[Rfam]
Nucleotides: 238
Base pairs, nucleotide, nucleotide: 001042002041003040007037009035010034011033012032018029021026046067050066051065052064053063054062074237075236076235077234078233093225094224095223096222097221098216099215100214106170107169108168115158116157118153119152120151121150122149123148124147172209173208174207175206177203178202179201
Number, partner (000 for none) and nucleotide at each position: 001042u002041c003040g004000a005000c006000g007037a008000a009035u010034a011033c012032u013000u014000a015000g016000u017000c018029a019000a020000g021026a022000u023000c024000a025000u026021u027000g028000c029018u030000a031000u032012a033011g034010u035009a036000u037007u038000u039000g040003u041002g042001a043000u044000g045000u046067u047000u048000u049000a050066u051065u052064g053063u054062u055000a056000u057000a058000a059000a060000u061000a062054a063053a064052c065051a066050g067046a068000u069000u070000a071000u072000c073000a074237a075236a076235a077234g078233u079000g080000a081000u082000g083000a084000u085000g086000a087000a088000a089000a090000g091000g092000c093225g094224c095223g096222g097221c098216u099215c100214u101000a102000u103000a104000a105000a106170u107169g108168a109000a110000a111000a112000u113000a114000u115158u116157u117000c118153g119152a120151u121150u122149u123148c124147c125000u126000u127000c128000a129000a130000g131000u132000u133000c134000u135000u136000u137000a138000g139000a140000a141000a142000u143000u144000g145000u146000u147124g148123g149122g150121a151120a152119u153118c154000c155000g156000a157116a158115a159000c160000a161000u162000a163000g164000a165000u166000g167000a168108u169107c170106a171000a172209u173208u174207u175206u176000g177203g178202c179201c180000u181000c182000c183000a184000g185000g186000g187000a188000u189000u190000c191000u192000u193000c194000c195000c196000u197000c198000g199000u200000u201179g202178g203177c204000u205000g206175a207174a208173a209172a210000a211000u212000c213000a214100g215099g216098a217000g218000u219000u220000u221097g222096u223095c224094g225093c226000c227000a228000g229000c230000u231000g232000a233078a234077c235076u236075u237074u238000a

The family of this 238-nucleotide RNA sequence from Plasmodium knowlesi is "ACEA small nucleolar RNA U3". Small nucleolar RNAs (snoRNAs) are involved in the processing and modification of rRNA in the nucleolus. There are two main classes of snoRNAs: the box C/D class, and the box H/ACA class. U3 snoRNA is a member of the box C/D class. Rfam classes the family as a C/D-box small nucleolar RNA. The source organism's lineage runs through Eukaryota, Sar, Alveolata, Haemosporida and Plasmodium knowlesi. Rfam 15.1 lists 2,156 matches to the family in 132 species.